[Rfam]
RNA sequence: CAGCAUACUGAGAGCUGUAAUUUAGGGGCGGUAGCGUG
Numbered sequence: 001c002a003g004c005a006u007a008c009u010g011a012g013a014g015c016u017g018u019a020a021u022u023u024a025g026g027g028g029c030g031g032u033a034g035c036g037u038g
Base pairs, nucleotide, nucleotide: 008025009024010023011022012021